MIR807 microRNA precursor family: a 177-nucleotide sequence from Oryza meridionalis. Rfam 15.1 lists 1,514 matches to the family in 13 species. Gene Ontology terms of the family: RISC complex and miRNA-mediated post-transcriptional gene silencing. A search with the family's covariance model found it, with a score of 123 bits. On this family, see Luo et al., FEBS Lett 2006: "Rice embryogenic calli express a unique set of microRNAs, suggesting regulatory roles of microRNAs in plant post-embryogenic development". The source organism's lineage runs through Eukaryota, Viridiplantae, Embryophyta, Oryzinae and Oryza. The family's consensus secondary structure was predicted with WAR.

RNA sequence: AACCACACUAUCGAUGAAUGGAUUCACCCGUGGUAUGACGUAGUUGUUUCAUCUAGUAUGAGGACGUGGUAUCAUAUUAAUUUCGUGCGAUGGCUGGUAAUAGGAUGUCAUGUUCUCGUCCUUAGUGAAAUAGCCACAUCAUCCUCGCGGGUGAAUCUAUACAUCGAUAAUGUAAUU
Numbered sequence: 001a002a003c004c005a006c007a008c009u010a011u012c013g014a015u016g017a018a019u020g021g022a023u024u025c026a027c028c029c030g031u032g033g034u035a036u037g038a039c040g041u042a043g044u045u046g047u048u049u050c051a052u053c054u055a056g057u058a059u060g061a062g063g064a065c066g067u068g069g070u071a072u073c074a075u076a077u078u079a080a081u082u083u084c085g086u087g088c089g090a091u092g093g094c095u096g097g098u099a100a101u102a103g104g105a106u107g108u109c110a111u112g113u114u115c116u117c118g119u120c121c122u123u124a125g126u127g128a129a130a131u132a133g134c135c136a137c138a139u140c141a142u143c144c145u146c147g148c149g150g151g152u153g154a155a156u157c158u159a160u161a162c163a164u165c166g167a168u169a170a171u172g173u174a175a176u177u
Stems, first nucleotide, its partner, number of pairs: 001177002005173003009169007018160002021157008030148004035142004041136001043134006051126002055122001058119001063114003069108005075102005086097001